[Rfam]
RNA: RtT RNA
Organism: Shigella sonnei
RNA sequence: UGCAUUUGAAGCCCAUGAGGAUGAGAACCUCCGGGGGCGGGGAGGUUCGACUCGAGCGAAGCGAGAGAACGUUGCGCCAGCAACGGCCCGCAGGGCGAGCCACGAAGUGGCGAGUAAUCCUCUAUCACCGACCA
Numbered sequence: 001u002g003c004a005u006u007u008g009a010a011g012c013c014c015a016u017g018a019g020g021a022u023g024a025g026a027a028c029c030u031c032c033g034g035g036g037g038c039g040g041g042g043a044g045g046u047u048c049g050a051c052u053c054g055a056g057c058g059a060a061g062c063g064a065g066a067g068a069a070c071g072u073u074g075c076g077c078c079a080g081c082a083a084c085g086g087c088c089c090g091c092a093g094g095g096c097g098a099g100c101c102a103c104g105a106a107g108u109g110g111c112g113a114g115u116a117a118u119c120c121u122c123u124a125u126c127a128c129c130g131a132c133c134a
Base pairs, nucleotide, nucleotide: 015125016124017122018121019120020119022117032097033096038095046092048090049089053063054062070085071084072083073082074081075080